[Rfam]
RNA: Iron response element I
RNA sequence: CGAUCUCCUGCUUCAACAGGGCUUGAACGGAACCC
Numbered sequence: 001c002g003a004u005c006u007c008c009u010g011c012u013u014c015a016a017c018a019g020g021g022c023u024u025g026a027a028c029g030g031a032a033c034c035c
Base pairs, nucleotide, nucleotide: 002034004032006031007030008029010028012027013026014025015024016023017021